MIR1120/MIR1122 microRNA precursor family: an 87-nucleotide RNA from Triticum aestivum. Rfam links the family to the GO terms miRNA-mediated post-transcriptional gene silencing and RISC complex. Pairs were carried over by alignment from the consensus structure, which was predicted with RNAalifold. Taxonomically the source falls in Triticum (Eukaryota, Viridiplantae, Euphyllophyta, Poales).
[Rfam]
Nucleotides: 087
Stems, first nucleotide, its partner, number of pairs: 003085003007081005013075005019069023
Number, partner (000 for none) and nucleotide at each position: 001000g002000u003085a004084c005083u006000c007081c008080c009079u010078c011077c012000g013075u014074u015073u016072c017071a018000u019069a020068a021067u022066g023065u024064a025063a026062g027061a028060u029059g030058u031057u032056u033055u034054u035053u036052a037051a038050c039049a040048u041047u042000a043000a044000u045000g046000u047041a048040g049039u050038g051037u052036u053035a054034a055033a056032a057031a058030a059029u060028g061027u062026c063025u064024u065023a066022u067021a068020u069019u070000a071017u072016g073015a074014a075013a076000u077011g078010g079009a080008g081007g082000g083005a084004g085003u086000a087000a